[Rfam]
RNA sequence: AUAGAACCAGUGAUGAGGAAUAGUAGGUAAGAUAACACAUGAAAAGAGAAGAAAUGCCCAAGGCUGAAAGCAUUUCUGCAUGAUGACUUAGUGAAAGAACACCUCUUAGGUUUCACUCUGAAAAAGAGAAAACUCUUUAGUAGGAGAUGGACGUAUCAGGCGUUAACUGAUUGAGUGGAGAUUUUUCUAAAAAAUCUCAACUAGGGUGGUACCACGGGAAUUUAAACUCUCGUCCCUACA
Numbered sequence: 001a002u003a004g005a006a007c008c009a010g011u012g013a014u015g016a017g018g019a020a021u022a023g024u025a026g027g028u029a030a031g032a033u034a035a036c037a038c039a040u041g042a043a044a045a046g047a048g049a050a051g052a053a054a055u056g057c058c059c060a061a062g063g064c065u066g067a068a069a070g071c072a073u074u075u076c077u078g079c080a081u082g083a084u085g086a087c088u089u090a091g092u093g094a095a096a097g098a099a100c101a102c103c104u105c106u107u108a109g110g111u112u113u114c115a116c117u118c119u120g121a122a123a124a125a126g127a128g129a130a131a132a133c134u135c136u137u138u139a140g141u142a143g144g145a146g147a148u149g150g151a152c153g154u155a156u157c158a159g160g161c162g163u164u165a166a167c168u169g170a171u172u173g174a175g176u177g178g179a180g181a182u183u184u185u186u187c188u189a190a191a192a193a194a195u196c197u198c199a200a201c202u203a204g205g206g207u208g209g210u211a212c213c214a215c216g217g218g219a220a221u222u223u224a225a226a227c228u229c230u231c232g233u234c235c236c237u238a239c240a
Stems, first nucleotide, its partner, number of pairs: 007110002015105004026092001028090004039081003050077008113150002116146004152162003178198007203237004214233005